[Rfam]
RNA sequence: ACUAAAUAUAAAGCGCCUGGACUAUUCCUGAAAACGAUGAACGGUUGGAAUAGUUGACGAGGAAGAGGUUUAUCGAAAGACUCGGCGGAUGCCUCUCGGAAAAGCUUGCACCGUUAAUCCGCGUACAAAACAGGAAGGCAACUUUCUGGACAGAGGCCGGAUAGCAAGCAUU
Numbered sequence: 001a002c003u004a005a006a007u008a009u010a011a012a013g014c015g016c017c018u019g020g021a022c023u024a025u026u027c028c029u030g031a032a033a034a035c036g037a038u039g040a041a042c043g044g045u046u047g048g049a050a051u052a053g054u055u056g057a058c059g060a061g062g063a064a065g066a067g068g069u070u071u072a073u074c075g076a077a078a079g080a081c082u083c084g085g086c087g088g089a090u091g092c093c094u095c096u097c098g099g100a101a102a103a104g105c106u107u108g109c110a111c112c113g114u115u116a117a118u119c120c121g122c123g124u125a126c127a128a129a130a131c132a133g134g135a136a137g138g139c140a141a142c143u144u145u146c147u148g149g150a151c152a153g154a155g156g157c158c159g160g161a162u163a164g165c166a167a168g169c170a171u172u
Base pairs, nucleotide, nucleotide: 020055021054022053023052024051025050026049027048064096065095066094067093068092073085074084075083076082097113098112099111117162118161119160120159121158123157131148132147133146134145135144136143137142

This 172-nucleotide RNA sequence from Sporolactobacillus putidus belongs to the Rfam family "glmS glucosamine-6-phosphate activated ribozyme aptamer". Rfam links the family to the GO terms catalytic activity and regulation of gene expression. By type it is a riboswitch. The organism belongs to Sporolactobacillus, within Bacteria. Pairs were carried over by alignment from the consensus structure, which is taken from published work.